[Rfam]
RNA: Selenocysteine transfer RNA
RNA sequence: GGAGGCGUCUGCUCACCUGGUGGGAGUCGCGGCCUUCAAAGCCGACGAGACCGAGCACCUCGGUCUGGCGGGUUCGAUCCCCGUCCGCCUCC
Numbered sequence: 001g002g003a004g005g006c007g008u009c010u011g012c013u014c015a016c017c018u019g020g021u022g023g024g025a026g027u028c029g030c031g032g033c034c035u036u037c038a039a040a041g042c043c044g045a046c047g048a049g050a051c052c053g054a055g056c057a058c059c060u061c062g063g064u065c066u067g068g069c070g071g072g073u074u075c076g077a078u079c080c081c082c083g084u085c086c087g088c089c090u091c092c
Stems, first nucleotide, its partner, number of pairs: 001092007011027004016023002030044004048066005069083004